[Rfam]
RNA sequence: CCGAGGGGACGACCUCCCCGGUCGCGGGACCGAGGGGACGACCUC
Dot-bracket structure: (.(.((((....)))).).).............((((....))))
Shown here is a 45-nucleotide RNA sequence from Darwinula stevensoni, a member of the family "Guanidine-II riboswitch aptamer (mini-ykkC)".
The source organism's lineage runs through Eukaryota, Opisthokonta, Eumetazoa, Darwinuloidea and Darwinula.
The family's consensus secondary structure is taken from published work.